Overview
This 151-nucleotide RNA from Neorhizobium lilium belongs to the Rfam family "speF leader". The source organism's lineage runs through Bacteria, Pseudomonadati, Pseudomonadota, Hyphomicrobiales and Neorhizobium. Rfam classes the family as a cis-regulatory leader. A reference for the family is Corbino et al. (2005), "Evidence for a second class of S-adenosylmethionine riboswitches and other regulatory RNA motifs in alpha-proteobacteria", Genome Biol. The base pairs follow the family's consensus structure, which was predicted with RNAalifold.

[Rfam]
RNA sequence: UCCCGGCUUUCCAACAGCCGGGGUUACUGAAGAGGCACACCAUCAUUGCCGGAAGUGCGGUAGGGACCUCCCUCCAAUCCAUGGCAGACAAAGCCGGAUUUUCGUUCUUGGCAGAGCGUUGAUCCACUUACCGCGCGUUUGAGCGUGUCAG
Numbered sequence: 001u002c003c004c005g006g007c008u009u010u011c012c013a014a015c016a017g018c019c020g021g022g023g024u025u026a027c028u029g030a031a032g033a034g035g036c037a038c039a040c041c042a043u044c045a046u047u048g049c050c051g052g053a054a055g056u057g058c059g060g061u062a063g064g065g066a067c068c069u070c071c072c073u074c075c076a077a078u079c080c081a082u083g084g085c086a087g088a089c090a091a092a093g094c095c096g097g098a099u100u101u102u103c104g105u106u107c108u109u110g111g112c113a114g115a116g117c118g119u120u121g122a123u124c125c126a127c128u129u130a131c132c133g134c135g136c137g138u139u140u141g142a143g144c145g146u147g148u149c150a151g
Stems, first nucleotide, its partner, number of pairs: 001023008034050004057136003083095002103118005